This 272-nucleotide sequence from Nannospalax galili belongs to the Rfam family "Mason-Pfizer monkey virus packaging signal". The match comes from Rfam's covariance-model search (122 bits). Pairs were carried over by alignment from the consensus structure, which was predicted with PFOLD. By type it is a cis-regulatory element. The source organism's lineage runs through Eukaryota, Gnathostomata, Euteleostomi, Theria and Nannospalax. Gene Ontology term of the family: viral genome packaging. Rfam's curators write: This family represents a group of sequences that are related to the Mason-Pfizer monkey virus (MPMV) packaging signal. The packaging signal is located in the 5' UTR and is required for specific RNA encapsidation.

RNA sequence: UGGCACCCAACGUGGGGCCUGGAUACUGGGGGACAACCUGAGGGACACGACGAAAGAAGAAGGGGUGUGCACCCGCUCAAAUAGUUCGGAGACGUCGCGGUAGCCUUCUGUGACUGAGCCGACAGGUAGUUGGUCAUUAAUCAUGGGGCAAGAAUUAAGUCAGCAUCAGAAAUAUGUGAUACAGUUGAGAGAAGCUUUACAGGCAAGAGAAGUAGAGGUUACAACUGAGGAUUUAUUUCAUUUCUUUGACUUCAUGAAAGACAUCUGCUCAU
Numbered sequence: 001u002g003g004c005a006c007c008c009a010a011c012g013u014g015g016g017g018c019c020u021g022g023a024u025a026c027u028g029g030g031g032g033a034c035a036a037c038c039u040g041a042g043g044g045a046c047a048c049g050a051c052g053a054a055a056g057a058a059g060a061a062g063g064g065g066u067g068u069g070c071a072c073c074c075g076c077u078c079a080a081a082u083a084g085u086u087c088g089g090a091g092a093c094g095u096c097g098c099g100g101u102a103g104c105c106u107u108c109u110g111u112g113a114c115u116g117a118g119c120c121g122a123c124a125g126g127u128a129g130u131u132g133g134u135c136a137u138u139a140a141u142c143a144u145g146g147g148g149c150a151a152g153a154a155u156u157a158a159g160u161c162a163g164c165a166u167c168a169g170a171a172a173u174a175u176g177u178g179a180u181a182c183a184g185u186u187g188a189g190a191g192a193a194g195c196u197u198u199a200c201a202g203g204c205a206a207g208a209g210a211a212g213u214a215g216a217g218g219u220u221a222c223a224a225c226u227g228a229g230g231a232u233u234u235a236u237u238u239c240a241u242u243u244c245u246u247u248g249a250c251u252u253c254a255u256g257a258a259a260g261a262c263a264u265c266u267g268c269u270c271a272u
Base pairs, nucleotide, nucleotide: 006031007030008029012026013025014024037049039047086126087125088123093118096112097111098110099109100108133149134148137146138145139144156199157198158197159195160194207247208246209245211243212242216234217233218232219231220230257272260269262267